Source information:
A member of the RNA family "IMES-2 RNA motif", 143 nucleotides long.

RNA sequence: UUCUUAAUUAAGAGGCAACUCUUAACUGGCCAUCUGGGGAAAAACCGAGAGGUUCAAGCCUAGAGGGCAGAAAGUCUUGCAGAGUAGCGCUAAAAUUGUAAGGCGGUCAUGGCUUGGCGGUAGCGCAUACAACGACGAGCCAA
Numbered sequence: 001u002u003c004u005u006a007a008u009u010a011a012g013a014g015g016c017a018a019c020u021c022u023u024a025a026c027u028g029g030c031c032a033u034c035u036g037g038g039g040a041a042a043a044a045c046c047g048a049g050a051g052g053u054u055c056a057a058g059c060c061u062a063g064a065g066g067g068c069a070g071a072a073a074g075u076c077u078u079g080c081a082g083a084g085u086a087g088c089g090c091u092a093a094a095a096u097u098g099u100a101a102g103g104c105g106g107u108c109a110u111g112g113c114u115u116g117g118c119g120g121u122a123g124c125g126c127a128u129a130c131a132a133c134g135a136c137g138a139g140c141c142a143a
Stems, first nucleotide, its partner, number of pairs: 008025007026070003030067002033064006043054004074104008087126005111141006118134002
On this family, see Weinberg et al., Nature 2009: "Exceptional structured noncoding RNAs revealed by bacterial metagenome analysis". The base pairs follow the family's consensus structure, which is taken from published work. The family's RNA type in Rfam is non-coding RNA gene. It is one of the family's seed sequences.